[Rfam]
RNA sequence: CUUUCCGUGCUGAUUUCCGGUAAAACAAGGGAAAUUGCGGAAUUAUUAUCUUUGCCGGAUUACUCAUAAACGCAGCAAUGGCGUAAGACGUAUUGAAUAAUCAGGCAGUUAGCGAGCUGUGGUUUGCAGCUUGGCCGGCAUAUGGAAUCAGAUCUGGCAACCUACUUUCAGAAGCUGUUCCCGCAGUAAAUGCGCUGUAUUCCAUCAGGAAAUACAGGCUACCGAAACAUGCGCCUCUAUGCAGGCGACAACCGUGAGGUUGACGCCCCUGCGAUAAGACACGAGGCCAUCGGUCCCCUCCGGUCAUGCCUCCGUUCAUCCGCAGCUCUAUCAAUAA
Numbered sequence: 001c002u003u004u005c006c007g008u009g010c011u012g013a014u015u016u017c018c019g020g021u022a023a024a025a026c027a028a029g030g031g032a033a034a035u036u037g038c039g040g041a042a043u044u045a046u047u048a049u050c051u052u053u054g055c056c057g058g059a060u061u062a063c064u065c066a067u068a069a070a071c072g073c074a075g076c077a078a079u080g081g082c083g084u085a086a087g088a089c090g091u092a093u094u095g096a097a098u099a100a101u102c103a104g105g106c107a108g109u110u111a112g113c114g115a116g117c118u119g120u121g122g123u124u125u126g127c128a129g130c131u132u133g134g135c136c137g138g139c140a141u142a143u144g145g146a147a148u149c150a151g152a153u154c155u156g157g158c159a160a161c162c163u164a165c166u167u168u169c170a171g172a173a174g175c176u177g178u179u180c181c182c183g184c185a186g187u188a189a190a191u192g193c194g195c196u197g198u199a200u201u202c203c204a205u206c207a208g209g210a211a212a213u214a215c216a217g218g219c220u221a222c223c224g225a226a227a228c229a230u231g232c233g234c235c236u237c238u239a240u241g242c243a244g245g246c247g248a249c250a251a252c253c254g255u256g257a258g259g260u261u262g263a264c265g266c267c268c269c270u271g272c273g274a275u276a277a278g279a280c281a282c283g284a285g286g287c288c289a290u291c292g293g294u295c296c297c298c299u300c301c302g303g304u305c306a307u308g309c310c311u312c313c314g315u316u317c318a319u320c321c322g323c324a325g326c327u328c329u330a331u332c333a334a335u336a337a
Stems, first nucleotide, its partner, number of pairs: 003042006014032004052108005058102002064096003070091003075082002114328009124318001132306007144181005153172005192219002195217004200212002203209001221294005233287005246265002249262005
Overview:
RNase E 5' UTR element: a 337-nucleotide RNA sequence from Dickeya dadantii. Pairs were carried over by alignment from the consensus structure, which is taken from published work. The source organism's lineage runs through Bacteria, Gammaproteobacteria, Pectobacteriaceae, Dickeya and Dickeya dadantii. A search with the family's covariance model found it, with a score of 271 bits. The literature on the family includes a 2000 paper in Genes Dev by Diwa et al., "An evolutionarily conserved RNA stem-loop functions as a sensor that directs feedback regulation of RNase E gene expression". By type it is a cis-regulatory element.